RNA sequence: GUGCAGACCUUUCCAGCGAGGCCGAGCCUACCGUGGUUCUGUCCUUUCCUGUAGUGUCUGCUAGAGAGAUGUGAGGCUGUUUGAGGCCCUGCUGUGACUAUCCAUGGCAGGGUUAUAGGUAAACCUCACACAAAC
Numbered sequence: 001g002u003g004c005a006g007a008c009c010u011u012u013c014c015a016g017c018g019a020g021g022c023c024g025a026g027c028c029u030a031c032c033g034u035g036g037u038u039c040u041g042u043c044c045u046u047u048c049c050u051g052u053a054g055u056g057u058c059u060g061c062u063a064g065a066g067a068g069a070u071g072u073g074a075g076g077c078u079g080u081u082u083g084a085g086g087c088c089c090u091g092c093u094g095u096g097a098c099u100a101u102c103c104a105u106g107g108c109a110g111g112g113u114u115a116u117a118g119g120u121a122a123a124c125c126u127c128a129c130a131c132a133a134a135c
Stems, first nucleotide, its partner, number of pairs: 003061006019045003024039005072128005087112006094105003
RNA: Small nucleolar RNA SNORA9
Organism: Lates calcarifer